mir-8834 microRNA precursor family: a 99-nucleotide RNA sequence from Canis lupus. Pairs were carried over by alignment from the consensus structure, which was predicted with RNAalifold. A search with the family's covariance model found it, with a score of 70 bits. Lineage of the source: Eukaryota > Opisthokonta > Tetrapoda > Carnivora > Canis lupus.
RNA sequence: AGGAGGAACAACCCCAGUGGCAGCUCUGGAGCCCUGGAUUCAGCCCCCACAGGAACUCUGAAGCUCUCCGCCUGCAGGGCCUGGAUGCUCCGGGGCGGG
Numbered sequence: 001a002g003g004a005g006g007a008a009c010a011a012c013c014c015c016a017g018u019g020g021c022a023g024c025u026c027u028g029g030a031g032c033c034c035u036g037g038a039u040u041c042a043g044c045c046c047c048c049a050c051a052g053g054a055a056c057u058c059u060g061a062a063g064c065u066c067u068c069c070g071c072c073u074g075c076a077g078g079g080c081c082u083g084g085a086u087g088c089u090c091c092g093g094g095g096c097g098g099g
Stems, first nucleotide, its partner, number of pairs: 002091004007086001009083002012079003019072003022065004027060004033053004